[Rfam]
RNA sequence: AAACAGCCCCCUAUGUAUUGGAUCUUUGACAGUUUUGACCCUCAAGACCACUUUUGACUUAGUCUUCGCUGACGUGGCACCCACAUCCCUUAAAGGAGGUGCCACGUGUCGACCAUUGUGGGUGCCACGUCAGCGAAGACUAAGUCAAAAGUGGUCUUGGGACCAAAACUGCCAAAGAUCCAAUACAUAGGGGGUUGUUU
Numbered sequence: 001a002a003a004c005a006g007c008c009c010c011c012u013a014u015g016u017a018u019u020g021g022a023u024c025u026u027u028g029a030c031a032g033u034u035u036u037g038a039c040c041c042u043c044a045a046g047a048c049c050a051c052u053u054u055u056g057a058c059u060u061a062g063u064c065u066u067c068g069c070u071g072a073c074g075u076g077g078c079a080c081c082c083a084c085a086u087c088c089c090u091u092a093a094a095g096g097a098g099g100u101g102c103c104a105c106g107u108g109u110c111g112a113c114c115a116u117u118g119u120g121g122g123u124g125c126c127a128c129g130u131c132a133g134c135g136a137a138g139a140c141u142a143a144g145u146c147a148a149a150a151g152u153g154g155u156c157u158u159g160g161g162a163c164c165a166a167a168a169c170u171g172c173c174a175a176a177g178a179u180c181c182a183a184u185a186c187a188u189a190g191g192g193g194g195u196u197g198u199u200u
Base pairs, nucleotide, nucleotide: 001200002199004197005196006195007194008193012189013188014187015186016185017184018183019182020181021180022179023178024177025176026175027174028173030171031170032169033168034167035166036165037164040161041160043159044158045157072130073129075127076126077125078124079123080122081121082120083119084118085117

About this RNA:
Rfam assigns this 200-nucleotide sequence from Medicago truncatula to the family "MIR2619 microRNA precursor family". Gene Ontology terms of the family: RISC complex and miRNA-mediated post-transcriptional gene silencing.